[Rfam]
RNA sequence: UCUGUUGUUGUAAACAUCCCCGACUGGAAGCUGUGAAAUGAAAUCCGAGCUUUCAGUCAGAUGUUUGCUGUUGCUGG
Number, nucleotide and partner (000 for none) at each position: 001u000002c076003u000004g074005u073006u000007g000008u070009u000010g068011u067012a066013a065014a064015c063016a062017u061018c060019c000020c000021c000022g000023a057024c056025u055026g054027g053028a052029a051030g050031c049032u048033g000034u000035g000036a000037a000038a000039u000040g000041a000042a000043a000044u000045c000046c000047g000048a032049g031050c030051u029052u028053u027054c026055a025056g024057u023058c000059a000060g018061a017062u016063g015064u014065u013066u012067g011068c010069u000070g008071u000072u000073g005074c004075u000076g002077g000

Overview
The family of this 77-nucleotide RNA from Polypterus senegalus is "mir-30 microRNA precursor family". About the family: This family consists of the mammalian microRNA (miRNA) precursor mir-30a. Animal miRNAs are transcribed as ~70nt precursors and subsequently processed by the Dicer enzyme to give a ~22nt product. In this case the mature sequence comes from both the 3' (miR-30) and 5' (mir-97-6) arms of the precursor. The extents of the hairpin precursors are not generally known and are estimated based on hairpin prediction. Rfam 15.1 lists 3,879 matches to the family in 647 species.